[Rfam]
The family of this 112-nucleotide RNA sequence from Chloroflexia bacterium SDU3-3 is "TPP riboswitch aptamer (THI element)". The base pairs follow the family's consensus structure, which is taken from published work.

RNA sequence: CUACAUAGCUAGGGGAGCCAGGUGAGCCUGGCUGAGACUGCGGCCCGAAUGCUGCUAACCCUCCGAACCUGAUCUGGGUUAUGCCAGCGAAGGGAAGCACACCGAUACACCG
Number, nucleotide and partner (000 for none) at each position: 001c000002u000003a000004c000005a000006u000007a000008g098009c097010u096011a062012g061013g060014g059015g000016a056017g032018c031019c030020a029021g028022g000023u000024g000025a000026g000027c000028c021029u020030g019031g018032c017033u000034g000035a000036g000037a000038c000039u000040g055041c054042g053043g052044c000045c000046c000047g000048a000049a000050u000051g000052c043053u042054g041055c040056u016057a000058a000059c014060c013061c012062u011063c000064c000065g000066a000067a000068c093069c092070u091071g000072a000073u000074c087075u086076g085077g084078g000079u000080u000081a000082u000083g000084c077085c076086a075087g074088c000089g000090a000091a070092g069093g068094g000095a000096a010097g009098c008099a000100c000101a000102c000103c000104g000105a000106u000107a000108c000109a000110c000111c000112g000